[Rfam]
Nucleotides: 094
Base pairs, nucleotide, nucleotide: 001094002093003092004091005090009084010083011082012081013080015041016040017039018038023036025034027032043079044078045077046076047075048072049071050070
Number, partner (000 for none) and nucleotide at each position: 001094c002093u003092g004091a005090c006000a007000a008000c009084g010083g011082c012081g013080c014000a015041u016040g017039g018038g019000u020000g021000g022000a023036g024000a025034u026000a027032g028000g029000u030000g031000u032027u033000g034025a035000g036023c037000g038018c039017c040016c041015a042000u043079u044078g045077c046076c047075c048072c049071u050070c051000a052000a053000g054000a055000c056000c057000g058000c059000a060000u061000c062000g063000c064000g065000g066000u067000a068000c069000a070050g071049a072048g073000c074000a075047g076046g077045g078044c079043a080013g081012c082011g083010c084009c085000u086000g087000a088000a089000c090005g091004u092003c093002a094001g

The family of this 94-nucleotide RNA is "L4-Archaeoglobi ribosomal protein leades". The base pairs follow the family's consensus structure, which is taken from published work. By type it is a cis-regulatory leader.